[Rfam]
RNA sequence: UAUUGCUGCUAGGGGUGCCGCAAGGCUGAGAGAGAUAUUAUUAUCUCAACCCUCAGAACCUGAUAUGGUUAGUACCAUCGUAGGGAAGCAAAAAGAAAUAUGU
Numbered sequence: 001u002a003u004u005g006c007u008g009c010u011a012g013g014g015g016u017g018c019c020g021c022a023a024g025g026c027u028g029a030g031a032g033a034g035a036u037a038u039u040a041u042u043a044u045c046u047c048a049a050c051c052c053u054c055a056g057a058a059c060c061u062g063a064u065a066u067g068g069u070u071a072g073u074a075c076c077a078u079c080g081u082a083g084g085g086a087a088g089c090a091a092a093a094a095g096a097a098a099u100a101u102g103u
Stems, first nucleotide, its partner, number of pairs: 007090004011053004017026003033046005059084004065078004
Rfam assigns this 103-nucleotide RNA from Herbinix luporum to the family "TPP riboswitch aptamer (THI element)". Pairs were carried over by alignment from the consensus structure, which is taken from published work. Rfam links the family to the GO term thiamine pyrophosphate binding. The organism belongs to Herbinix, within Bacteria. Vitamin B(1) in its active form thiamin pyrophosphate (TPP) is an essential coenzyme that is synthesised by coupling of pyrimidine and thiazole moieties in bacteria. The previously detected thiamin-regulatory element, thi box was extended, resulting in a new, highly conserved RNA secondary structure, the THI element, which is widely distributed in eubacteria and also occurs in some archaea.